A member of the RNA family "M-box riboswitch aptamer (ykoK leader)" from Ignatzschineria ureiclastica, 209 nucleotides long. A reference for the family is Barrick et al. (2004), "New RNA motifs suggest an expanded scope for riboswitches in bacterial genetic control", Proc Natl Acad Sci U S A. Rfam describes the family as follows. M-box riboswitch, also know as ykoK leader is described as a metaloregulatory RNA that sense divalent metals and function as a genetic control element of genes related to divalent metal transport in bacteria. Gene Ontology terms of the family: regulation of gene expression and response to magnesium ion. It scores 125 bits against the family's covariance model. Pairs were carried over by alignment from the consensus structure. Taxonomically the source falls in Ignatzschineria (Bacteria, Pseudomonadota, Gammaproteobacteria, Cardiobacteriales).

RNA sequence: AACUAUCCUCGUUAGGUGAGGCUCCUAUAUGGAGGCAAGCUACUGCCCAGAAACGUCGAGAGACACCAACGGGUCAGCAGAAACUGUCGAGCUAAGGCAGUAUCUAAUGUAGCCGAAAGUCUUAUUUUCAAUCUAUCUAUCAUAUAUUGAGUAGAUUAUAAGCCACUUUCAUGCCAUAUAGUGCUAAAGCUGUACGAAAGAGGAGAGAU
Dot-bracket structure: .....((((((([.(((..(((..((((((((......(((((.((((......(((....)))......)))).....((.(..(((......])))..).))....))))).(((.................................................)))....)))))))).)))...)))..))....))))).....